Shown here is a 107-nucleotide RNA from Papaver nudicaule, a member of the family "Small nucleolar RNA Z279/snoR105/snoR108". Its family is annotated with RNA processing and nucleolus in the Gene Ontology. A search with the family's covariance model found it, with a score of 73 bits. Rfam classes the family as a C/D-box small nucleolar RNA. The family's consensus secondary structure was predicted with PFOLD.
RNA sequence: GGGAAGUGAUGAGUGGUCAAAACUCGCAAUCUAUGCGAGAAUUGGGUGUCCAGCCUAAGCCUGGUUACGACAAUAUGGGCACUCCCAUUUGUUACCCAUCUGAUUCC
Numbered sequence: 001g002g003g004a005a006g007u008g009a010u011g012a013g014u015g016g017u018c019a020a021a022a023c024u025c026g027c028a029a030u031c032u033a034u035g036c037g038a039g040a041a042u043u044g045g046g047u048g049u050c051c052a053g054c055c056u057a058a059g060c061c062u063g064g065u066u067a068c069g070a071c072a073a074u075a076u077g078g079g080c081a082c083u084c085c086c087a088u089u090u091g092u093u094a095c096c097c098a099u100c101u102g103a104u105u106c107c
Base pairs, nucleotide, nucleotide: 001107002106003105004104014098015097016096023039024038025037026036027035044084045083046082047081048080049079050078062077063076064074065073
The source organism's lineage runs through Eukaryota, Magnoliopsida, Mesangiospermae, Ranunculales and Papaver. On this family, see Marker et al., Curr Biol 2002: "Experimental RNomics: identification of 140 candidates for small non-messenger RNAs in the plant Arabidopsis thaliana". Rfam describes the family as follows. This family includes the plant snoRNAs known as Z279, snoR105 and snoR108.